[Rfam]
RNA sequence: CAUAAGCUGCGUUGUUCGUAAUCAUAUUUAAGUUUUAACCUUUAUGCUGUAAUAGGGAGUUUUACAUCGAAACGGGACUGACAAGCCUCUGUCUAUAUGACAAGGAGGACAGGCAAGAAUGUUUCUGCGAACACCCACUUUGAGGAGUGGUGGUUUAAAACUUUCUUAUCUAACAUUACGGCAAAUGCGGCUGUACA
Number, nucleotide and partner (000 for none) at each position: 001c000002a000003u000004a000005a192006g191007c190008u189009g188010c187011g186012u184013u183014g182015u181016u000017c180018g179019u178020a000021a000022u000023c000024a000025u000026a000027u000028u000029u000030a000031a162032g161033u160034u159035u000036u157037a156038a155039c153040c152041u000042u000043u000044a000045u000046g000047c000048u000049g000050u000051a000052a000053u000054a000055g136056g135057g134058a000059g132060u131061u130062u129063u000064a000065c000066a126067u000068c000069g125070a124071a123072a122073c121074g120075g000076g000077a000078c000079u000080g114081a000082c000083a000084a000085g000086c108087c107088u106089c105090u104091g000092u000093c000094u000095a000096u000097a000098u000099g000100a000101c000102a000103a000104g090105g089106a088107g087108g086109a000110c000111a000112g000113g000114c080115a000116a000117g000118a000119a000120u074121g073122u072123u071124u070125c069126u066127g000128c000129g062130a061131a060132c059133a000134c057135c056136c055137a000138c000139u000140u000141u000142g000143a000144g000145g000146a000147g000148u000149g000150g000151u000152g040153g039154u000155u038156u037157a036158a000159a034160a033161c032162u031163u000164u000165c000166u000167u000168a000169u000170c000171u000172a000173a000174c000175a000176u000177u000178a019179c018180g017181g015182c014183a013184a012185a000186u011187g010188c009189g008190g007191c006192u005193g000194u000195a000196c000197a000
Shown here is a 197-nucleotide RNA sequence from Mesobacillus persicus, a member of the family "6S / SsrS RNA". Pairs were carried over by alignment from the consensus structure, which is taken from published work. The match comes from Rfam's covariance-model search (78 bits). A reference for the family is Elkina et al. (2017), "6S RNA in Rhodobacter sphaeroides: 6S RNA and pRNA transcript levels peak in late exponential phase and gene deletion causes a high salt stress phenotype", RNA Biol. Taxonomically the source falls in Mesobacillus (Bacteria, Bacillati, Bacillota, Caryophanales).